[Rfam]
RNA: MIR6288 microRNA precursor family
RNA sequence: UCAAAAUUAGUCACUUGUCAUUUUCUAAUUGGUUCUUAGUGUGUUAAAAUUUUCUAAUAAUCAAUUAGAACAUGACAAGUGGUUGGUUUUGG
Numbered sequence: 001u002c003a004a005a006a007u008u009a010g011u012c013a014c015u016u017g018u019c020a021u022u023u024u025c026u027a028a029u030u031g032g033u034u035c036u037u038a039g040u041g042u043g044u045u046a047a048a049a050u051u052u053u054c055u056a057a058u059a060a061u062c063a064a065u066u067a068g069a070a071c072a073u074g075a076c077a078a079g080u081g082g083u084u085g086g087u088u089u090u091g092g
Base pairs, nucleotide, nucleotide: 002091003090004089005088006087007086008085009084010083011082012081013080014079015078016077017076018075019074020073021072023070024069025068026067027066028065029064030063031062032061033060034059036057037056038055039054